[Rfam]
RNA: Burkholderia RNA 14
Nucleotides: 173
Base pairs, nucleotide, nucleotide: 003054004053005052006051007050008047009046010045011043018037019036021034022033023031024030055150056149058147059143060142065139067137068136069135070134072133074131075130078093079092080091082089094121095120097118099116100115102114104112105111106110157172158171160168161167
Number, partner (000 for none) and nucleotide at each position: 001000g002000u003054c004053g005052g006051c007050g008047u009046c010045g011043u012000c013000a014000c015000g016000c017000u018037c019036g020000c021034g022033c023031c024030c025000g026000u027000c028000g029000c030024g031023g032000u033022g034021c035000c036019c037018g038000u039000g040000a041000c042000c043011a044000g045010c046009g047008a048000a049000u050007u051006g052005c053004c054003g055150g056149g057000g058147c059143g060142c061000a062000c063000c064000a065139g066000c067137g068136c069135g070134u071000u072133c073000g074131u075130c076000g077000a078093u079092g080091c081000c082089c083000a084000a085000g086000u087000g088000c089082g090000c091080g092079c093078a094121c095120g096000c097118g098000u099116c100115g101000a102114u103000g104112g105111c106110a107000u108000c109000g110106u111105g112104c113000a114102g115100c116099g117000g118097c119000g120095c121094g122000a123000u124000u125000u126000c127000a128000c129000c130075g131074a132000a133072g134070g135069c136068g137067c138000g139065c140000u141000c142060g143059u144000g145000a146000a147058g148000g149056c150055c151000g152000g153000c154000c155000a156000g157172c158171g159000a160168c161167u162000c163000u164000a165000c166000a167161a168160g169000a170000u171158c172157g173000a